Rfam assigns this 137-nucleotide RNA from Molossus molossus to the family "U11 spliceosomal RNA". For this family Rfam cites "Additional low-abundance human small nuclear ribonucleoproteins: U11, U12, etc" (Montzka and Steitz, Proc Natl Acad Sci U S A, 1988). Rfam links the family to the GO terms mRNA 5'-splice site recognition, pre-mRNA 5'-splice site binding and U11 snRNP. Pairs were carried over by alignment from the consensus structure, which is taken from published work. It scores 81 bits against the family's covariance model. Rfam classes the family as a spliceosomal small nuclear RNA.
[Rfam]
RNA sequence: CAAAAGGGCUUCUGUUGUGAGCGGCACACGUAGGGCAGCUUGACUACUGUACAUGCAGAAUUGACAUCAUCAAGAGAUUUCAAAAGUAUAAUUUUUUGGUAUUUGCGCAGCUGGUGAUUGUUAGUCCUGGCACCCAC
Numbered sequence: 001c002a003a004a005a006g007g008g009c010u011u012c013u014g015u016u017g018u019g020a021g022c023g024g025c026a027c028a029c030g031u032a033g034g035g036c037a038g039c040u041u042g043a044c045u046a047c048u049g050u051a052c053a054u055g056c057a058g059a060a061u062u063g064a065c066a067u068c069a070u071c072a073a074g075a076g077a078u079u080u081c082a083a084a085a086g087u088a089u090a091a092u093u094u095u096u097u098g099g100u101a102u103u104u105g106c107g108c109a110g111c112u113g114g115u116g117a118u119u120g121u122u123a124g125u126c127c128u129g130g131c132a133c134c135c136a137c
Base pairs, nucleotide, nucleotide: 008087009086010085011084013026014025015024016023017022027055028054030052031051032050034048035047037045038044058080059079060078061077062076105135107133110131111130112129113128114127116126117125118124119123